[Rfam]
RNA sequence: UUAAAACAGCUGUGGGUUGUUCCCACUCACAGGGCCCACUGGGCGCUAGCACUCUGAUUUUACGAAAUCCUUGUGCGCCUGUUUUAUAU
Number, nucleotide and partner (000 for none) at each position: 001u000002u086003a085004a084005a083006a082007c081008a080009g000010c033011u031012g030013u029014g028015g027016g026017u025018u000019g000020u000021u000022c000023c000024c000025a017026c016027u015028c014029a013030c012031a011032g000033g010034g044035c043036c042037c000038a000039c000040u000041g000042g036043g035044c034045g078046c077047u000048a000049g076050c075051a074052c073053u000054c000055u000056g069057a068058u067059u066060u000061u000062a000063c000064g000065a000066a059067a058068u057069c056070c000071u000072u000073g052074u051075g050076c049077g046078c045079c000080u008081g007082u006083u005084u004085u003086a002087u000088a000089u000
RNA: Enterovirus 5' cloverleaf cis-acting replication element